[Rfam]
RNA sequence: GAGUGAGGUGAGGACUAGGUAAUCUCCCUAUUGGUUUGAUCUGCGGAAUGAUGGCAAAAAAUAUAUUAGCUCUAACUGAUCAUUC
Number, nucleotide and partner (000 for none) at each position: 001g000002a084003g083004u082005g081006a000007g000008g000009u000010g000011a000012g000013g000014a000015c000016u000017a000018g000019g000020u000021a000022a000023u000024c000025u000026c000027c000028c000029u000030a000031u000032u000033g000034g000035u000036u000037u000038g000039a000040u000041c000042u056043g055044c054045g000046g000047a000048a000049u000050g000051a000052u000053g000054g044055c043056a042057a000058a000059a000060a000061a000062u000063a000064u000065a000066u000067u000068a000069g000070c000071u000072c000073u000074a000075a000076c000077u000078g000079a000080u000081c005082a004083u003084u002085c000